[Rfam]
RNA sequence: CGAGAGAACUCGCGUCAAGGAACUCGGCAAAAUACACACGUAACCUCGGGAGAAGUGUGACCCUUGCCUUUGGUGAGGGUGGCAGAAAGCAGGUCCAGGCGACUGUUUAUCAAAAACAUAGCCAUCUGCAAAUCAGUAAUGAGACGUAUAGGUGGUGACACCUGCCCGGUGCUGGAAGGUUAAGAGGAGAGGUUCGUGGUAACACAACGCUUUGAAUUGAAGCCCCAGUAAACGGCGGCCGUAACUAUAACGGUCCUAAGGUAGCGAAAUUCCUUGUCGGGUAAGUUCCGACCCGCACGAAUGGUGUAACGACUCUGGACACUGUCUCGACGCGAGACUCG
Numbered sequence: 001c002g003a004g005a006g007a008a009c010u011c012g013c014g015u016c017a018a019g020g021a022a023c024u025c026g027g028c029a030a031a032a033u034a035c036a037c038a039c040g041u042a043a044c045c046u047c048g049g050g051a052g053a054a055g056u057g058u059g060a061c062c063c064u065u066g067c068c069u070u071u072g073g074u075g076a077g078g079g080u081g082g083c084a085g086a087a088a089g090c091a092g093g094u095c096c097a098g099g100c101g102a103c104u105g106u107u108u109a110u111c112a113a114a115a116a117c118a119u120a121g122c123c124a125u126c127u128g129c130a131a132a133u134c135a136g137u138a139a140u141g142a143g144a145c146g147u148a149u150a151g152g153u154g155g156u157g158a159c160a161c162c163u164g165c166c167c168g169g170u171g172c173u174g175g176a177a178g179g180u181u182a183a184g185a186g187g188a189g190a191g192g193u194u195c196g197u198g199g200u201a202a203c204a205c206a207a208c209g210c211u212u213u214g215a216a217u218u219g220a221a222g223c224c225c226c227a228g229u230a231a232a233c234g235g236c237g238g239c240c241g242u243a244a245c246u247a248u249a250a251c252g253g254u255c256c257u258a259a260g261g262u263a264g265c266g267a268a269a270u271u272c273c274u275u276g277u278c279g280g281g282u283a284a285g286u287u288c289c290g291a292c293c294c295g296c297a298c299g300a301a302u303g304g305u306g307u308a309a310c311g312a313c314u315c316u317g318g319a320c321a322c323u324g325u326c327u328c329g330a331c332g333c334g335a336g337a338c339u340c341g
Base pairs, nucleotide, nucleotide: 001341002340003339004338009336010335011334012333013332014331015330016329018327019326020325035059036058037057038056039055044049060080061079062078063077064076065075066074067073068072093320094319095318096317097316098315099314100311101310104118105117106116121156122155123154124153125152126151127150128149129146133142134141135140159306160305161304162303164236165235166234169233170232171229172228173227174226175225178224179223180222184218185217189213190212191211192210193209196205197204237255238254239253240252241251242250256260266293276292277291278290279289280288281287